[Rfam]
RNA sequence: AGGCCCAGUGAUUAUGAAAAGACGCGUUAUUACGAGGACUUAUACCGGGGCCUCUUCACCACUUUCUCCCCCUCCUCCUCCUCCUUCUCCCCUUUAUGCUUGUUCUUGCUUUCCUUCUUUCGGGGUACCCGGUGUCCUUUGAGCAAGAUUAUGAGAUGAGGGCUC
Numbered sequence: 001a002g003g004c005c006c007a008g009u010g011a012u013u014a015u016g017a018a019a020a021g022a023c024g025c026g027u028u029a030u031u032a033c034g035a036g037g038a039c040u041u042a043u044a045c046c047g048g049g050g051c052c053u054c055u056u057c058a059c060c061a062c063u064u065u066c067u068c069c070c071c072c073u074c075c076u077c078c079u080c081c082u083c084c085u086u087c088u089c090c091c092c093u094u095u096a097u098g099c100u101u102g103u104u105c106u107u108g109c110u111u112u113c114c115u116u117c118u119u120u121c122g123g124g125g126u127a128c129c130c131g132g133u134g135u136c137c138u139u140u141g142a143g144c145a146a147g148a149u150u151a152u153g154a155g156a157u158g159a160g161g162g163c164u165c
Base pairs, nucleotide, nucleotide: 002164003163004162005161006160035055036054037053039050040049041048
Dot-bracket structure: .(((((............................(((.(((......)))..)))........................................................................................................))))).